[Rfam]
RNA sequence: GGGUGUUCUCAGGGCGGGGUGAAAUUCCCCACCGGCGGUAAGCGGUCAGCCGCAAGCCCGCGAGCGCCUUCCAUCGAUGGGUCAGCAGAUCAGGUGCGAGUCCUGAGCCGACGGUCACAGUCCGGAUGAAAGAGAACAUGC
Numbered sequence: 001g002g003g004u005g006u007u008c009u010c011a012g013g014g015c016g017g018g019g020u021g022a023a024a025u026u027c028c029c030c031a032c033c034g035g036c037g038g039u040a041a042g043c044g045g046u047c048a049g050c051c052g053c054a055a056g057c058c059c060g061c062g063a064g065c066g067c068c069u070u071c072c073a074u075c076g077a078u079g080g081g082u083c084a085g086c087a088g089a090u091c092a093g094g095u096g097c098g099a100g101u102c103c104u105g106a107g108c109c110g111a112c113g114g115u116c117a118c119a120g121u122c123c124g125g126a127u128g129a130a131a132g133a134g135a136a137c138a139u140g141c
Stems, first nucleotide, its partner, number of pairs: 003139008017029003031121002033110002035061004056108002064086002090106005112124003
About this RNA
The record is a 141-nucleotide RNA from Paenirhodobacter populi, which matches "FMN riboswitch aptamer (RFN element)" in Rfam. A search with the family's covariance model found it, with a score of 118 bits. The organism belongs to Paenirhodobacter, within Bacteria.